[Rfam]
RNA: raiA RNA
RNA sequence: UCCUACCAGGCUGUGGUUGCGGACGGACGAAAUGCCCGUCCUAGUCCAAGACAGACGCGGUCAAAGGGAUCCACGUAAGCGACCGCGUGUGCGCGGCGCGAUCAUGGCGCGUCCUAGAUGUAAGCCGCACCGUCCGUUCUAUUUUUCUUUGGGGCAAUACCGCCUCGCGGGCGAGCGGGCCAGUCGUGAAGGCGGCUACGGCCUCCCGAGCAAACGCCCCGGUGCGCAAGUGUGGGGUCAAAUACCAGGUCAGCUGGUGGGA
Numbered sequence: 001u002c003c004u005a006c007c008a009g010g011c012u013g014u015g016g017u018u019g020c021g022g023a024c025g026g027a028c029g030a031a032a033u034g035c036c037c038g039u040c041c042u043a044g045u046c047c048a049a050g051a052c053a054g055a056c057g058c059g060g061u062c063a064a065a066g067g068g069a070u071c072c073a074c075g076u077a078a079g080c081g082a083c084c085g086c087g088u089g090u091g092c093g094c095g096g097c098g099c100g101a102u103c104a105u106g107g108c109g110c111g112u113c114c115u116a117g118a119u120g121u122a123a124g125c126c127g128c129a130c131c132g133u134c135c136g137u138u139c140u141a142u143u144u145u146u147c148u149u150u151g152g153g154g155c156a157a158u159a160c161c162g163c164c165u166c167g168c169g170g171g172c173g174a175g176c177g178g179g180c181c182a183g184u185c186g187u188g189a190a191g192g193c194g195g196c197u198a199c200g201g202c203c204u205c206c207c208g209a210g211c212a213a214a215c216g217c218c219c220c221g222g223u224g225c226g227c228a229a230g231u232g233u234g235g236g237g238u239c240a241a242a243u244a245c246c247a248g249g250u251c252a253g254c255u256g257g258u259g260g261g262a
Base pairs, nucleotide, nucleotide: 001262002261003260004259005258006257007256008255009254011253012252013251014247015246016245017244048233050231051061054113055112056111057110058109059108070107071106075102083095105240126226127225128224129223130222131173132172133171134170135169136168137167177219178218179217180216186211187210191203192202193201